[Rfam]
RNA: Small nucleolar RNA Z102/R77
RNA sequence: GAAUGAGGUGAUGAUUAAUACAACAUGUUGAUGGCUGAUAUGAUGGCAUUUUAUCAUGUAUUAGCUCUAGCUGAUCAUCC
Numbered sequence: 001g002a003a004u005g006a007g008g009u010g011a012u013g014a015u016u017a018a019u020a021c022a023a024c025a026u027g028u029u030g031a032u033g034g035c036u037g038a039u040a041u042g043a044u045g046g047c048a049u050u051u052u053a054u055c056a057u058g059u060a061u062u063a064g065c066u067c068u069a070g071c072u073g074a075u076c077a078u079c080c
Stems, first nucleotide, its partner, number of pairs: 003078003030050001034047003